RNA sequence: AUGCAUGAACGUUAUGGAUGCUCUCUGAUUGGUGGAGAGCAGACAUGCAGCACAUGCUAGAUGAACAUGUGAGUUAUCAGGGCCACCAGUCUCUCAAGAACAGACUGUGCUGGUAGUAUACGACUCACACAUUC
Numbered sequence: 001a002u003g004c005a006u007g008a009a010c011g012u013u014a015u016g017g018a019u020g021c022u023c024u025c026u027g028a029u030u031g032g033u034g035g036a037g038a039g040c041a042g043a044c045a046u047g048c049a050g051c052a053c054a055u056g057c058u059a060g061a062u063g064a065a066c067a068u069g070u071g072a073g074u075u076a077u078c079a080g081g082g083c084c085a086c087c088a089g090u091c092u093c094u095c096a097a098g099a100a101c102a103g104a105c106u107g108u109g110c111u112g113g114u115a116g117u118a119u120a121c122g123a124c125u126c127a128c129a130c131a132u133u134c
Stems, first nucleotide, its partner, number of pairs: 003057005019041006070127004082114002086109001087107006
Overview
The family of this 134-nucleotide sequence from Danionella cerebrum is "Small nucleolar RNA U109". Pairs were carried over by alignment from the consensus structure, which was predicted with WAR. A reference for the family is Gu et al. (2005), "A novel experimental approach for systematic identification of box H/ACA snoRNAs from eukaryotes", Nucleic Acids Res. It scores 59 bits against the family's covariance model. The family has 26 seed sequences and 1,405 matches in Rfam 15.1. The organism belongs to Danionella, within Eukaryota. By type it is an H/ACA-box small nucleolar RNA.